[Rfam]
RNA sequence: GGCGAUAAACGCUACAUGAAAUAAGCGUUACGGACCCGGGGCAGUACCCGGCGCCUCCACCAAUUUCGCGGAUUCCGGCUCGCCUUGCGAGCCGAUCCGCAUGCGGGGGCGAACCAGGAUCGACGUGCGUGGUAAAGGUGUGGUUUUCGCUCGGCAUGGUACCGCCGUUAUCGGGCCGAUCUAUAUAUGCCAACGACAAUGAGGCAUAUGCUCUCGCCGCCUAA
Number, nucleotide and partner (000 for none) at each position: 001g151002g150003c149004g148005a147006u000007a000008a000009a000010c000011g000012c000013u000014a141015c140016a139017u138018g000019a000020a000021a000022u000023a000024a000025g000026c129027g128028u127029u000030a126031c125032g124033g000034a000035c000036c051037c050038g049039g048040g047041g000042c000043a000044g000045u000046a000047c040048c039049c038050g037051g036052c111053g110054c109055c108056u107057c106058c105059a000060c000061c000062a000063a000064u000065u000066u000067c000068g000069c000070g000071g000072a000073u000074u000075c000076c000077g000078g000079c000080u000081c000082g000083c000084c000085u000086u000087g000088c000089g000090a000091g000092c000093c000094g000095a000096u000097c000098c000099g000100c000101a000102u000103g000104c000105g058106g057107g056108g055109g054110c053111g052112a000113a000114c000115c000116a000117g000118g000119a000120u000121c000122g000123a000124c032125g031126u030127g028128c027129g026130u000131g000132g000133u000134a000135a000136a000137g000138g017139u016140g015141u014142g000143g000144u000145u000146u000147u005148c004149g003150c002151u001152c167153g166154g165155c164156a000157u000158g000159g000160u000161a000162c000163c000164g155165c154166c153167g152168u000169u000170a000171u000172c000173g000174g000175g000176c000177c000178g000179a000180u000181c000182u000183a000184u000185a000186u000187a000188u000189g000190c000191c000192a000193a000194c000195g000196a000197c000198a000199a000200u000201g000202a000203g000204g000205c000206a000207u000208a000209u000210g000211c000212u000213c000214u000215c000216g000217c000218c000219g000220c000221c000222u000223a000224a000
Notes
This 224-nucleotide sequence from Defluviicoccus sp. belongs to the Rfam family "permuted transfer-messenger RNA". By type it is a non-coding RNA gene. It scores 141 bits against the family's covariance model.